EFASI RNA: a 154-nucleotide sequence from Escherichia coli.
RNA sequence: UAGUGAGGUACCGAAUCGGCGAUAUGUCUGACAGGCAGAUAUAUCGGGGGCGACCUUUAAAGGUACAGUUAAUUCUGCGGUCGGUUAGCCAAACCGACUUGACACCCCGCUAAACCUGAACUGAUUGCGUUACCCUGACGCACAGGUACUCACU
Numbered sequence: 001u002a003g004u005g006a007g008g009u010a011c012c013g014a015a016u017c018g019g020c021g022a023u024a025u026g027u028c029u030g031a032c033a034g035g036c037a038g039a040u041a042u043a044u045c046g047g048g049g050g051c052g053a054c055c056u057u058u059a060a061a062g063g064u065a066c067a068g069u070u071a072a073u074u075c076u077g078c079g080g081u082c083g084g085u086u087a088g089c090c091a092a093a094c095c096g097a098c099u100u101g102a103c104a105c106c107c108c109g110c111u112a113a114a115c116c117u118g119a120a121c122u123g124a125u126u127g128c129g130u131u132a133c134c135c136u137g138a139c140g141c142a143c144a145g146g147u148a149c150u151c152a153c154u
Stems, first nucleotide, its partner, number of pairs: 002154004007150006020046010047108004054063003079099008